RNA sequence: UAUUAAGAAGAUGUCUGCUUACCUGAAUGUGUUUCUGCAGAAAUUUAGAGAAAGCUAGCAAUAGUAAAACCAUGUUACAAGACUUAAAGACACUGAGGUCAUUAGGGCCCUGAAAAUGGAUGUAAGG
Number, nucleotide and partner (000 for none) at each position: 001u057002a056003u000004u000005a000006a000007g000008a000009a000010g000011a000012u000013g000014u041015c040016u039017g038018c037019u000020u000021a000022c000023c000024u000025g000026a000027a000028u000029g000030u000031g000032u000033u000034u000035c000036u000037g018038c017039a016040g015041a014042a000043a000044u000045u000046u000047a000048g000049a000050g000051a000052a000053a000054g000055c000056u002057a001058g000059c000060a000061a000062u000063a000064g000065u000066a000067a000068a000069a000070c119071c118072a117073u000074g000075u000076u000077a000078c000079a000080a000081g108082a000083c106084u105085u104086a103087a102088a000089g100090a099091c098092a000093c000094u000095g000096a000097g000098g091099u090100c089101a000102u087103u086104a085105g084106g083107g000108c081109c000110c000111u000112g000113a000114a000115a000116a000117u072118g071119g070120a000121u000122g000123u000124a000125a000126g000127g000
RNA: Small nucleolar RNA SNORA33
Organism: Phyllostomus discolor